[Rfam]
RNA sequence: GAGUUAGGAAGGCAACCUAAGUUCGCCGCGUCCUGCGGCGACGGUUGCAUAACCUACCUCCUGUAGG
Numbered sequence: 001g002a003g004u005u006a007g008g009a010a011g012g013c014a015a016c017c018u019a020a021g022u023u024c025g026c027c028g029c030g031u032c033c034u035g036c037g038g039c040g041a042c043g044g045u046u047g048c049a050u051a052a053c054c055u056a057c058c059u060c061c062u063g064u065a066g067g
Stems, first nucleotide, its partner, number of pairs: 012048006025039005053067005
RNA: Bacillaceae-1 RNA
Organism: Sporosarcina sp. HYO08